[Rfam]
RNA sequence: UGCUUAUAACGAAAGACGGAGGGAGUAGACCCUGCGAAGUCUUAGCAACCUGUGCCAACAAGGUGCUAAAUUCUAUCCGCGAAAGGCGGAGCAGAUAAGCG
Numbered sequence: 001u002g003c004u005u006a007u008a009a010c011g012a013a014a015g016a017c018g019g020a021g022g023g024a025g026u027a028g029a030c031c032c033u034g035c036g037a038a039g040u041c042u043u044a045g046c047a048a049c050c051u052g053u054g055c056c057a058a059c060a061a062g063g064u065g066c067u068a069a070a071u072u073c074u075a076u077c078c079g080c081g082a083a084a085g086g087c088g089g090a091g092c093a094g095a096u097a098a099g100c101g
Stems, first nucleotide, its partner, number of pairs: 001101007013043005021032003026075004044067004049063002051060003071093001076090005
Dot-bracket structure: (((((((.....(((((...(((..[[[[)))......)))))((((.(((((....))).))))))...(]]]](((((.....)))))..).)))))))